[Rfam]
Rfam assigns this 75-nucleotide RNA from Malonomonas rubra to the family "c-di-GMP-I-GGC riboswitch aptamer". Pairs were carried over by alignment from the consensus structure, which is taken from published work. It scores 71 bits against the family's covariance model. Lineage of the source: Bacteria > Desulfuromonadia > Geopsychrobacteraceae > Malonomonas > Malonomonas rubra.
RNA sequence: UUUGAAAAAGGCAAACCUAGGGCAACCUAGGGACGCAAAGCCACGGGUCCUUCAUGGACAGCCGGGUUGCCAGGU
Numbered sequence: 001u002u003u004g005a006a007a008a009a010g011g012c013a014a015a016c017c018u019a020g021g022g023c024a025a026c027c028u029a030g031g032g033a034c035g036c037a038a039a040g041c042c043a044c045g046g047g048u049c050c051u052u053c054a055u056g057g058a059c060a061g062c063c064g065g066g067u068u069g070c071c072a073g074g075u
Stems, first nucleotide, its partner, number of pairs: 003072002011036002016031006034061001039068004044064003047059003
Dot-bracket structure: ..((......((...((((((....))))))..[))..((((.((((((.......))).])))))))..))...